The record is a 286-nucleotide sequence from Microcebus murinus, which matches "HIF-1 alpha IRES" in Rfam. A search with the family's covariance model found it, with a score of 193 bits. The source organism's lineage runs through Eukaryota, Sarcopterygii, Dipnotetrapodomorpha, Primates and Microcebus. The family's consensus secondary structure was predicted with RNAfold. This family represents the hypoxia-inducible factor 1-alpha internal ribosome entry site. For this family Rfam cites "Hypoxia-inducible factor-1alpha mRNA contains an internal ribosome entry site that allows efficient translation during normoxia and hypoxia" (Lang et al., Mol Biol Cell, 2002). Rfam links the family to the GO term ribosome binding.
RNA sequence: CUCGUCUGAGGGUACGCGAGGAUCGCCCUCGCGUGUGCUUCGGCCGGUGCGUCGGGCUGGGCCCUGACGAGCCGUCGGACGAGAAGGAGGCUCCGAGCCGGACCCAGACCCCUGUGCUUGCCGCCUGCUCCGCCUGCCUCUGGCCUCACGAGGGGUUUCCCGCCUCGCACCCCCCACCUCGGACUUGCCCUCCUCCUCUCUCCGCGUGUGGAGGGAGCAGCGCUUAGGCCGGAGCGAGCCUGGGGGCCGCGGGCCGCGAAGGCACCGCGGGGACCGAUUCGCCAUG
Numbered sequence: 001c002u003c004g005u006c007u008g009a010g011g012g013u014a015c016g017c018g019a020g021g022a023u024c025g026c027c028c029u030c031g032c033g034u035g036u037g038c039u040u041c042g043g044c045c046g047g048u049g050c051g052u053c054g055g056g057c058u059g060g061g062c063c064c065u066g067a068c069g070a071g072c073c074g075u076c077g078g079a080c081g082a083g084a085a086g087g088a089g090g091c092u093c094c095g096a097g098c099c100g101g102a103c104c105c106a107g108a109c110c111c112c113u114g115u116g117c118u119u120g121c122c123g124c125c126u127g128c129u130c131c132g133c134c135u136g137c138c139u140c141u142g143g144c145c146u147c148a149c150g151a152g153g154g155g156u157u158u159c160c161c162g163c164c165u166c167g168c169a170c171c172c173c174c175c176a177c178c179u180c181g182g183a184c185u186u187g188c189c190c191u192c193c194u195c196c197u198c199u200c201u202c203c204g205c206g207u208g209u210g211g212a213g214g215g216a217g218c219a220g221c222g223c224u225u226a227g228g229c230c231g232g233a234g235c236g237a238g239c240c241u242g243g244g245g246g247c248c249g250c251g252g253g254c255c256g257c258g259a260a261g262g263c264a265c266c267g268c269g270g271g272g273a274c275c276g277a278u279u280c281g282c283c284a285u286g
Stems, first nucleotide, its partner, number of pairs: 002012002016032006036060001087158003091155001131154001133152001135150001185220003189217001191215002197212003230253001234250003